[Rfam]
RNA sequence: GCCUGGAUGACGCUCAGGGGCUGGGCUGCGGGCUUCAAACCUGGAGCUGUCUGGUGACAGAGUGGGUCAUUUCUACCUUUCAGGC
Numbered sequence: 001g002c003c004u005g006g007a008u009g010a011c012g013c014u015c016a017g018g019g020g021c022u023g024g025g026c027u028g029c030g031g032g033c034u035u036c037a038a039a040c041c042u043g044g045a046g047c048u049g050u051c052u053g054g055u056g057a058c059a060g061a062g063u064g065g066g067u068c069a070u071u072u073c074u075a076c077c078u079u080u081c082a083g084g085c
Stems, first nucleotide, its partner, number of pairs: 001085007009077001012026006027045001029043004047060005062076004